[Rfam]
Small nucleolar RNA SNORD121A: an 80-nucleotide RNA from Aquarana catesbeiana. It is annotated as a C/D-box small nucleolar RNA. On this family, see Yang et al., Nucleic Acids Res 2006: "snoSeeker: an advanced computational package for screening of guide and orphan snoRNA genes in the human genome".

RNA sequence: UGGUAUAAGACUAUGAUGCUGUAAUCCAAGCACAUAUCUUAAUUAUUGUGCAGACAACCACACAACUGAGUCUUAUGCCA
Numbered sequence: 001u002g003g004u005a006u007a008a009g010a011c012u013a014u015g016a017u018g019c020u021g022u023a024a025u026c027c028a029a030g031c032a033c034a035u036a037u038c039u040u041a042a043u044u045a046u047u048g049u050g051c052a053g054a055c056a057a058c059c060a061c062a063c064a065a066c067u068g069a070g071u072c073u074u075a076u077g078c079c080a
Stems, first nucleotide, its partner, number of pairs: 001080006008073004